[Rfam]
RNA sequence: UGCUUCCCUCUGCGGGGCAAUCGAUCGGGGGGCCCCCAGAUCGAUUGCCCCUCGGAGGGAGGCC
Numbered sequence: 001u002g003c004u005u006c007c008c009u010c011u012g013c014g015g016g017g018c019a020a021u022c023g024a025u026c027g028g029g030g031g032g033c034c035c036c037c038a039g040a041u042c043g044a045u046u047g048c049c050c051c052u053c054g055g056a057g058g059g060a061g062g063c064c
Stems, first nucleotide, its partner, number of pairs: 002063011014051013028037003
Rfam assigns this 64-nucleotide sequence from Myotis lucifugus to the family "mir-9242 microRNA precursor family". NCBI's taxonomy places the organism under Eukaryota, Dipnotetrapodomorpha, Laurasiatheria, Yangochiroptera, Myotis. Pairs were carried over by alignment from the consensus structure, which was predicted with RNAalifold. It scores 64 bits against the family's covariance model. The family has 2 seed sequences and 940 matches in Rfam 15.1.